[Rfam]
Rfam assigns this 255-nucleotide sequence from Staphylococcus phage VB-SauS-SA2 to the family "Staphylococcus sRNA 808".
A search with the family's covariance model found it, with a score of 137 bits.
NCBI's taxonomy places the organism under Viruses, Duplodnaviria, Uroviricota, Caudoviricetes, Sextaecvirus.
On this family, see Liu et al., Front Microbiol 2018: "Assessment of Bona Fide sRNAs in Staphylococcus aureus".
RNA sequence: AGGUAGACCUUCUGAAGCCACAAUGGUUAAAUUGAAAGACUACUUCAUUAAACAAAUCCGUGCCUACAUGGAUGGUAAAGUUCCAACAGCUACAGUAUCUAAAGAUUCUCCUGCUUCUAGUAACACGGCUAAACCUGUGGCAGGUAAAUGGCGUAGAAAUGAGUAUGGUACUUACUAUAUGUCAGAAAGCGCACGUUUCACUAAUGGUAAUCAACCAAUAGUAGCUAGAACAGUAGGACCAUUUAGAAGCUGUCC
Dot-bracket structure: .(((..(...((......((...((.((..((.....(.((...(.((.((.(........((.....(((((......)).)))...))...((.(((....))).))...).))...)).)...)).)......))...)).))..)).................((.(((.((.......)).))).)).............))...)..)))....(((..(.(((..((...))..))).)....)))..